Rfam assigns this 123-nucleotide RNA from Lactobacillus kefiranofaciens to the family "COG3610-DE RNA". Taxonomically the source falls in Lactobacillus kefiranofaciens (Bacteria, Bacillati, Bacillota, Lactobacillales). The family's consensus secondary structure is taken from published work.
[Rfam]
RNA sequence: GACGAGUCGAUUGAUUUAACGCGAGAUGCGUAAUAUUUAUGAGAUAGAGGACAUCCGCUUUUACUGGCAGGCGCGGGAAGCGCUGAUGGUGGGCUCACUGAUGUGAACAGUUAACUGCCCACA
Numbered sequence: 001g002a003c004g005a006g007u008c009g010a011u012u013g014a015u016u017u018a019a020c021g022c023g024a025g026a027u028g029c030g031u032a033a034u035a036u037u038u039a040u041g042a043g044a045u046a047g048a049g050g051a052c053a054u055c056c057g058c059u060u061u062u063a064c065u066g067g068c069a070g071g072c073g074c075g076g077g078a079a080g081c082g083c084u085g086a087u088g089g090u091g092g093g094c095u096c097a098c099u100g101a102u103g104u105g106a107a108c109a110g111u112u113a114a115c116u117g118c119c120c121a122c123a
Stems, first nucleotide, its partner, number of pairs: 006045003009038002012035002019031004050090001052088004057068003070084005091120003097111003